[Rfam]
A member of the RNA family "Flavo-1 RNA" from Flavobacterium psychrophilum, 85 nucleotides long. Pairs were carried over by alignment from the consensus structure, which is taken from published work. The sequence is in the family's curated seed alignment.

RNA sequence: AUUUUGCGUUAGGGAUAGAAACGGAAAUCCUUUUUUGAGGCUUUUUUGCCGAUAAAAAAGAUUGAAGUGUAUAGCCCGACCCUUG
Numbered sequence: 001a002u003u004u005u006g007c008g009u010u011a012g013g014g015a016u017a018g019a020a021a022c023g024g025a026a027a028u029c030c031u032u033u034u035u036u037g038a039g040g041c042u043u044u045u046u047u048g049c050c051g052a053u054a055a056a057a058a059a060g061a062u063u064g065a066a067g068u069g070u071a072u073a074g075c076c077c078g079a080c081c082c083u084u085g
Stems, first nucleotide, its partner, number of pairs: 012077003016073002021068002026063004031058002034052002037047003
Dot-bracket structure: ...........(((.((...((...((((.((.((.(((.....)))...))....)).))))...))...)).)))........